Rfam assigns this 141-nucleotide sequence from Brevibacillus sp. SYP-B805 to the family "FMN riboswitch aptamer (RFN element)". About the family: The RFN element is a highly conserved domain that is found frequently in the 5'-untranslated regions of prokaryotic mRNAs that encode for flavin mononucleotide (FMN) biosynthesis and transport proteins. This element is a metabolite-dependent riboswitch that directly binds FMN in the absence of proteins. In Bacillus subtilis, the riboswitch most likely controls gene expression by causing premature transcription termination within the 5' untranslated region of the ribDEAHT operon and precluding access to the ribosome-binding site of ypaA mRNA.The FMN riboswitch structure, reported in present an FMN-bound six-stem junction, adopts a butterfly-like scaffold, stapled together by opposingly directed but nearly identically folded peripheral domains. For this family Rfam cites "A conserved RNA structure element involved in the regulation of bacterial riboflavin synthesis genes" (Gelfand et al., Trends Genet, 1999). The source organism's lineage runs through Bacteria, Bacillati, Bacillota, Caryophanales and Brevibacillus. It scores 112 bits against the family's covariance model. The base pairs follow the family's consensus structure, which is taken from published work.

RNA sequence: GUGAACCUUCAGGGCAGGGUGAAAUUCCCGACCGGCGGUGAUGACCCAUGUGUCUGAGCCCGCGACUCGCUGGUACGUACAGCGACUGACUUGGUGAACAUUCCAAGGCCGACGGUAUAGUCCGGAUGGGAGAAGGUGAAC
Numbered sequence: 001g002u003g004a005a006c007c008u009u010c011a012g013g014g015c016a017g018g019g020u021g022a023a024a025u026u027c028c029c030g031a032c033c034g035g036c037g038g039u040g041a042u043g044a045c046c047c048a049u050g051u052g053u054c055u056g057a058g059c060c061c062g063c064g065a066c067u068c069g070c071u072g073g074u075a076c077g078u079a080c081a082g083c084g085a086c087u088g089a090c091u092u093g094g095u096g097a098a099c100a101u102u103c104c105a106a107g108g109c110c111g112a113c114g115g116u117a118u119a120g121u122c123c124g125g126a127u128g129g130g131a132g133a134a135g136g137u138g139a140a141c
Base pairs, nucleotide, nucleotide: 005137006136007135008134009133010132017029018028019027031121032120033111034110035063036062037061038060058109059108067085068084090107091106092105093104094103113124114123115122
Dot-bracket structure: ....((((((......(((.......))).[[((((((...................[[))))...((...............))....(((((........)))))]])).(((....]]))).......))))))....